RNA sequence: CCAGUCGGCCGGACGGCCGCUCCGCCUCGUGCGGGGAGGAAAGUCCGGGCUCCAUGGAUAAACGGUGCCGGAUAACAUCCGGCGGGGGCGACCCCAGGGAAAGUGCCACAGAAAGCAAACCGCCGGCGGGCUUGCUCGCCGGUAAGGGUGAAAGGGUGCGGUAAGAGCGCACCGCGCAACUGGCAACAGGAGCGGCACGGCAAACCCCACCGGGAGCAAAACCGAAUAGGGAUGGCAUAUGGCCCGAUCCAGGCCGCCGUCCGGGUUGGUUGCUUGAGGCGUCCGGCAACGGGCGUCCCAGAGGAAUGGCCGUCACGUCGGAGCGGACAACCGCUCCGGCCAUACAGAACCCGGCUUACAGGCCGGCUGGCACU
Numbered sequence: 001c002c003a004g005u006c007g008g009c010c011g012g013a014c015g016g017c018c019g020c021u022c023c024g025c026c027u028c029g030u031g032c033g034g035g036g037a038g039g040a041a042a043g044u045c046c047g048g049g050c051u052c053c054a055u056g057g058a059u060a061a062a063c064g065g066u067g068c069c070g071g072a073u074a075a076c077a078u079c080c081g082g083c084g085g086g087g088g089c090g091a092c093c094c095c096a097g098g099g100a101a102a103g104u105g106c107c108a109c110a111g112a113a114a115g116c117a118a119a120c121c122g123c124c125g126g127c128g129g130g131c132u133u134g135c136u137c138g139c140c141g142g143u144a145a146g147g148g149u150g151a152a153a154g155g156g157u158g159c160g161g162u163a164a165g166a167g168c169g170c171a172c173c174g175c176g177c178a179a180c181u182g183g184c185a186a187c188a189g190g191a192g193c194g195g196c197a198c199g200g201c202a203a204a205c206c207c208c209a210c211c212g213g214g215a216g217c218a219a220a221a222c223c224g225a226a227u228a229g230g231g232a233u234g235g236c237a238u239a240u241g242g243c244c245c246g247a248u249c250c251a252g253g254c255c256g257c258c259g260u261c262c263g264g265g266u267u268g269g270u271u272g273c274u275u276g277a278g279g280c281g282u283c284c285g286g287c288a289a290c291g292g293g294c295g296u297c298c299c300a301g302a303g304g305a306a307u308g309g310c311c312g313u314c315a316c317g318u319c320g321g322a323g324c325g326g327a328c329a330a331c332c333g334c335u336c337c338g339g340c341c342a343u344a345c346a347g348a349a350c351c352c353g354g355c356u357u358a359c360a361g362g363c364c365g366g367c368u369g370g371c372a373c374u
Base pairs, nucleotide, nucleotide: 001370002369003368004367005366006365007364008363009362010361011359012314013313014312015311016310017309018308020036021035022034023033024032025031041357042356043355045354046353047352048351049350050216051215052214053213060248063212064211065210066209067208068082069081070080071079072078083097084095085094086093087092098207099206103205104204105201106200107199120147121146122143123142124141125140126139127138128137129136130135155173156172157171158170159169160168174196175194176193177192180189181188182187220271221270222269223268230262231261232260233259234258235257241255242254243253244252278297279296280295281294282293283292284291285290
RNA: Bacterial RNase P class A
Organism: Agaricicola taiwanensis